This 89-nucleotide RNA sequence from Actinidia chinensis belongs to the Rfam family "Small nucleolar RNA Z221/R21b".
By type it is a C/D-box small nucleolar RNA.
For this family Rfam cites "The high diversity of snoRNAs in plants: identification and comparative study of 120 snoRNA genes from Oryza sativa" (Chen et al., Nucleic Acids Res, 2003).
[Rfam]
RNA sequence: GGGCAAUGAAGAGGAUGAAGAAGUCAUGCACCACUCUGAUGAAUCAAUCAGUGCUGAUAAAACUCCUCAUACCCAUAUUAUCUGAGCCC
Numbered sequence: 001g002g003g004c005a006a007u008g009a010a011g012a013g014g015a016u017g018a019a020g021a022a023g024u025c026a027u028g029c030a031c032c033a034c035u036c037u038g039a040u041g042a043a044u045c046a047a048u049c050a051g052u053g054c055u056g057a058u059a060a061a062a063c064u065c066c067u068c069a070u071a072c073c074c075a076u077a078u079u080a081u082c083u084g085a086g087c088c089c
Stems, first nucleotide, its partner, number of pairs: 001089004